[Rfam]
A member of the RNA family "c-di-AMP riboswitch aptamer (ydaO/yuaA leader)" from Nakamurella endophytica, 195 nucleotides long.
RNA sequence: UGUCACCAGCUACCGAGAGAGAAGGCUAGGGCAGCGGCGGAGGACCCGAUCAUCGCGGGGCCGCGGACGCGAGAGCGUCGCGGCUUCUUGGGGUGCAGCCGACUCGAUCGGCCGGGCGACCACCCCCGCACAUCCGACAGGACGUGCGCGCCCGAACCCGACAGCUCACUUCGCAGGCAAGCUCUGGGGACAGAA
Numbered sequence: 001u002g003u004c005a006c007c008a009g010c011u012a013c014c015g016a017g018a019g020a021g022a023a024g025g026c027u028a029g030g031g032c033a034g035c036g037g038c039g040g041a042g043g044a045c046c047c048g049a050u051c052a053u054c055g056c057g058g059g060g061c062c063g064c065g066g067a068c069g070c071g072a073g074a075g076c077g078u079c080g081c082g083g084c085u086u087c088u089u090g091g092g093g094u095g096c097a098g099c100c101g102a103c104u105c106g107a108u109c110g111g112c113c114g115g116g117c118g119a120c121c122a123c124c125c126c127c128g129c130a131c132a133u134c135c136g137a138c139a140g141g142a143c144g145u146g147c148g149c150g151c152c153c154g155a156a157c158c159c160g161a162c163a164g165c166u167c168a169c170u171u172c173g174c175a176g177g178c179a180a181g182c183u184c185u186g187g188g189g190a191c192a193g194a195a
Stems, first nucleotide, its partner, number of pairs: 001036003037174006047090002091159003099111004114153004

Source information
Lineage of the source: Bacteria > Actinomycetota > Actinomycetes > Nakamurellales > Nakamurella. Its family is annotated with cyclic-di-AMP binding and regulation of gene expression in the Gene Ontology.